[Rfam]
RNA sequence: CAGACACCUCGUUCGGUGAGGCGUCUUCACGGACACAGGCCACUGAUCCGACGACGUCGAGAGACGCCCAGGGUUAGGACAGAUCCUCCCGACCUAAGGGUUGAUCCGAAGUGGCUUCCGGCCCACCGGGCCGGACACGCCGUGGAGUGCCAAAGCUCUGACGAGUUGGGGUGCGCC
Numbered sequence: 001c002a003g004a005c006a007c008c009u010c011g012u013u014c015g016g017u018g019a020g021g022c023g024u025c026u027u028c029a030c031g032g033a034c035a036c037a038g039g040c041c042a043c044u045g046a047u048c049c050g051a052c053g054a055c056g057u058c059g060a061g062a063g064a065c066g067c068c069c070a071g072g073g074u075u076a077g078g079a080c081a082g083a084u085c086c087u088c089c090c091g092a093c094c095u096a097a098g099g100g101u102u103g104a105u106c107c108g109a110a111g112u113g114g115c116u117u118c119c120g121g122c123c124c125a126c127c128g129g130g131c132c133g134g135a136c137a138c139g140c141c142g143u144g145g146a147g148u149g150c151c152a153a154a155g156c157u158c159u160g161a162c163g164a165g166u167u168g169g170g171g172u173g174c175g176c177c
Stems, first nucleotide, its partner, number of pairs: 005173006011162002013097001015157003020151003025147008039115005045075005055066004082106004088100003117135006
The family of this 177-nucleotide sequence from Streptomyces rubellomurinus is "M-box riboswitch aptamer (ykoK leader)". Lineage of the source: Bacteria > Bacillati > Actinomycetes > Streptomycetaceae > Streptomyces.